RNA sequence: UAGAACAAUGUAGGUAAGGGAAGUCGGCAAAAUAGAUCCGUAACUUCGGGAAAAGGAUUGGCUCUAAGCGUUGGGUCUCUCGGGCUGAGACUUGAAGCGGGUGGAGCCGGCCCGGACUGGCCGAGGCUGACCUUCGCGAACCUUCACGGGGGAGGGGAGGGAGGCCAAGGUCGGACCGGGAAGGUACUGCCCGUGGAUUGGCCCAGCUAUGGCCGCCAGGUCAAAUCGGGAGGCGACGAACAACGAACUUAGAACUGGCAGUGACUAGGGGAAUCCGACUGUUUAAUUAAAACAAAGCAUUGCGAUGGCCGGAAACGGUGUUGACGCAAUGUGAUUUCUGCCCAGUGCUCUGAAUGUCAAAGUGAAGAAAUUCAACCAAGCGCGGGUAAACGGCGGGAGUAACUAUGACUCUCUUAAGGUAGCCAAAUGCCUCGUCAUCUAAUUAGUGACGCGCAUGAAUGGAUUAACGAGAUUCCCACUGUCCCUAUCUACUAUCUAGCGAAACCGCAGCAAAGGGAACGGACUUUGUAAA
Numbered sequence: 001u002a003g004a005a006c007a008a009u010g011u012a013g014g015u016a017a018g019g020g021a022a023g024u025c026g027g028c029a030a031a032a033u034a035g036a037u038c039c040g041u042a043a044c045u046u047c048g049g050g051a052a053a054a055g056g057a058u059u060g061g062c063u064c065u066a067a068g069c070g071u072u073g074g075g076u077c078u079c080u081c082g083g084g085c086u087g088a089g090a091c092u093u094g095a096a097g098c099g100g101g102u103g104g105a106g107c108c109g110g111c112c113c114g115g116a117c118u119g120g121c122c123g124a125g126g127c128u129g130a131c132c133u134u135c136g137c138g139a140a141c142c143u144u145c146a147c148g149g150g151g152g153a154g155g156g157g158a159g160g161g162a163g164g165c166c167a168a169g170g171u172c173g174g175a176c177c178g179g180g181a182a183g184g185u186a187c188u189g190c191c192c193g194u195g196g197a198u199u200g201g202c203c204c205a206g207c208u209a210u211g212g213c214c215g216c217c218a219g220g221u222c223a224a225a226u227c228g229g230g231a232g233g234c235g236a237c238g239a240a241c242a243a244c245g246a247a248c249u250u251a252g253a254a255c256u257g258g259c260a261g262u263g264a265c266u267a268g269g270g271g272a273a274u275c276c277g278a279c280u281g282u283u284u285a286a287u288u289a290a291a292a293c294a295a296a297g298c299a300u301u302g303c304g305a306u307g308g309c310c311g312g313a314a315a316c317g318g319u320g321u322u323g324a325c326g327c328a329a330u331g332u333g334a335u336u337u338c339u340g341c342c343c344a345g346u347g348c349u350c351u352g353a354a355u356g357u358c359a360a361a362g363u364g365a366a367g368a369a370a371u372u373c374a375a376c377c378a379a380g381c382g383c384g385g386g387u388a389a390a391c392g393g394c395g396g397g398a399g400u401a402a403c404u405a406u407g408a409c410u411c412u413c414u415u416a417a418g419g420u421a422g423c424c425a426a427a428u429g430c431c432u433c434g435u436c437a438u439c440u441a442a443u444u445a446g447u448g449a450c451g452c453g454c455a456u457g458a459a460u461g462g463a464u465u466a467a468c469g470a471g472a473u474u475c476c477c478a479c480u481g482u483c484c485c486u487a488u489c490u491a492c493u494a495u496c497u498a499g500c501g502a503a504a505c506c507g508c509a510g511c512a513a514a515g516g517g518a519a520c521g522g523a524c525u526u527u528g529u530a531a532a
Base pairs, nucleotide, nucleotide: 001498002497003496004495010492011491012490013489014488015487016486018484019483020482035059036058037057038056039055044049060256061255063253064252065251066250067249068248069245070244071243072242073241075234076233077232078231079230080229081228082227083226084207085206086205089202091200097194098193099192100191102189103188104187106185107184108183111180112179113178114177115176117174118173119172120171121170122169125166126165127164128163269477270476271475272474273473274472275471276469277468280294281293282292297332298331299330300329301328302327303326304325308319309318310317311316336463337462338461340394341393342392345391346390347387348386349385350384352383355382356381357380363374364373365372366371395413396412397411398410399409400408414418434450435449436448437447438446511528512527513526514525515524
A member of the RNA family "Eukaryotic large subunit ribosomal RNA" from Desmophyllum pertusum, 532 nucleotides of a longer RNA. A search with the family's covariance model found it, with a score of 3305 bits. The family's consensus secondary structure is taken from published work. NCBI's taxonomy places the organism under Eukaryota, Opisthokonta, Vacatina, Caryophylliidae, Desmophyllum.